Notes:
Rfam assigns this 111-nucleotide sequence from Clostridium ljungdahlii to the family "azaaromatic riboswitch aptamer (yjdF RNA)". It scores 80 bits against the family's covariance model.
RNA sequence: AUUAAUAGAGAUAAAAACACAGUUUUGGUUGGUAGUCCAAAACCUGGCUUGUACUUUAUAAGUUAGCAGUAACCUGCCCUCCUGGGGUUGUCCAUUCUCUAGAUUUUUUAU
Dot-bracket structure: .....((((((..........((.((((........)))).))((((((((((...)))))))))).........((((.....)))).......))))))..........